[Rfam]
The family of this 45-nucleotide RNA from Mannheimia haemolytica is "PreQ1 (pre queuosine) riboswitch aptamer". This family is a bacterial riboswitch that binds to the metabolite preQ1, an intermediate in the biosynthesis of the modified nucleoside queuosine from GTP. One example of this riboswitch is located in the leader of the Bacillus subtilis ykvJKLM (queCDEF) operon which encodes four genes necessary for queuosine production. NCBI's taxonomy places the organism under Bacteria, Pasteurellales, Pasteurellaceae, Mannheimia, Mannheimia haemolytica. Gene Ontology term of the family: queuosine biosynthetic process. The family has 43 seed sequences and 873 matches in Rfam 15.1.
RNA sequence: UUAUUUGUGGUUCGUAAACCUCCCACACAAAAAAACUAAGGACAC
Numbered sequence: 001u002u003a004u005u006u007g008u009g010g011u012u013c014g015u016a017a018a019c020c021u022c023c024c025a026c027a028c029a030a031a032a033a034a035a036c037u038a039a040g041g042a043c044a045c
Stems, first nucleotide, its partner, number of pairs: 006027005015038002